A member of the RNA family "Bacterial large subunit ribosomal RNA" from Thiohalophilus thiocyanatoxydans, 363 nucleotides of a longer RNA.
RNA sequence: UGAGAGAACUCGGGUGAAGGAACUAGGCAAAAUAGCACCGUAACUUCGGGAGAAGGUGUGCCUCUGUUAGGUGAAGCGACUUGCUCGUGGAGCUGAAGGAGGUUGCAGUGACCAGGUGGCUGCGACUGUUUACUAAAAACAUAGCACUCUGCUAACUCGAAAGAGGACGUAUAGGGUGUGACGCCUGCCCGGUGCCGGAAGGUUAAUUGAUGGGGUUAGUCCUCGGACGAAGCUCUUGAUCGAAGCCCCGGUAAACGGCGGCCGUAACUAUAACGGUCCUAAGGUAGCGAAAUUCCUUGUCGGGUAAGUUCCGACCUGCACGAAUGGCGUAACGAUGGCCACGCUGUCUCCACCCGAGACUCA
Numbered sequence: 001u002g003a004g005a006g007a008a009c010u011c012g013g014g015u016g017a018a019g020g021a022a023c024u025a026g027g028c029a030a031a032a033u034a035g036c037a038c039c040g041u042a043a044c045u046u047c048g049g050g051a052g053a054a055g056g057u058g059u060g061c062c063u064c065u066g067u068u069a070g071g072u073g074a075a076g077c078g079a080c081u082u083g084c085u086c087g088u089g090g091a092g093c094u095g096a097a098g099g100a101g102g103u104u105g106c107a108g109u110g111a112c113c114a115g116g117u118g119g120c121u122g123c124g125a126c127u128g129u130u131u132a133c134u135a136a137a138a139a140c141a142u143a144g145c146a147c148u149c150u151g152c153u154a155a156c157u158c159g160a161a162a163g164a165g166g167a168c169g170u171a172u173a174g175g176g177u178g179u180g181a182c183g184c185c186u187g188c189c190c191g192g193u194g195c196c197g198g199a200a201g202g203u204u205a206a207u208u209g210a211u212g213g214g215g216u217u218a219g220u221c222c223u224c225g226g227a228c229g230a231a232g233c234u235c236u237u238g239a240u241c242g243a244a245g246c247c248c249c250g251g252u253a254a255a256c257g258g259c260g261g262c263c264g265u266a267a268c269u270a271u272a273a274c275g276g277u278c279c280u281a282a283g284g285u286a287g288c289g290a291a292a293u294u295c296c297u298u299g300u301c302g303g304g305u306a307a308g309u310u311c312c313g314a315c316c317u318g319c320a321c322g323a324a325u326g327g328c329g330u331a332a333c334g335a336u337g338g339c340c341a342c343g344c345u346g347u348c349u350c351c352a353c354c355c356g357a358g359a360c361u362c363a
Base pairs, nucleotide, nucleotide: 001363002362003361004360009358010357011356012355013354014353015352016351018349019348020347035059036058037057038056039055044049060103061102062101063100064099065098083093084092085091086090104108116342117341118340119339120338121337122336123334124333127141128140129139144179145178146177147176148175149174150173151172152169156165157164158163182329183328184327185326187259188258189257192256193255194252195251196250197249198248201247202246203245212236213235214234215233216232219228220227260278261277262276263275264274265273279283289316299315300314301313302312303311304310
Its family is annotated with structural constituent of ribosome and ribosome in the Gene Ontology. The source organism's lineage runs through Bacteria, Pseudomonadati, Gammaproteobacteria, Thiohalophilaceae and Thiohalophilus. Pairs were carried over by alignment from the consensus structure, which is taken from published work.